A member of the RNA family "Plastid-ycf2 5UTR RNA" from Cocos nucifera, 75 nucleotides long. Taxonomically the source falls in Cocos (Eukaryota, Streptophyta, Liliopsida, Petrosaviidae). The family's RNA type in Rfam is cis-regulatory element. On this family, see Richter et al., Plant Commun 2023: "Retrograde signaling in plants: A critical review focusing on the GUN pathway and beyond". The family has 204 seed sequences and 3,521 matches in Rfam 15.1.
Nucleotides: 075
Stems, first nucleotide, its partner, number of pairs: 003075006010026001012024001040069003044066006051059001
Number, partner (000 for none) and nucleotide at each position: 001000a002000u003075g004074c005073a006072u007071c008070c009000a010026a011000c012024a013000a014000a015000a016000a017000a018000u019000g020000a021000a022000c023000c024012u025000a026010u027000g028000a029000a030000u031000u032000u033000a034000u035000c036000a037000a038000u039000u040069a041068u042067g043000a044066g045065u046064u047063g048062g049061g050000c051059g052000c053000u054000u055000u056000a057000a058000c059051c060000a061049u062048u063047c064046a065045g066044c067042c068041a069040u070008g071007g072006a073005u074004g075003c
About the family: Plastid ycf2 is a non-coding RNA (ncRNA) recognised in plastids. It was found in the prime untranslated region (5UTR) of ycf2 genes, it presents a tRNA-like motif which suggests it can be involved in mRNA maturation, particularly involved in defining the precise 5' end of the transcript. The match comes from Rfam's covariance-model search (80 bits).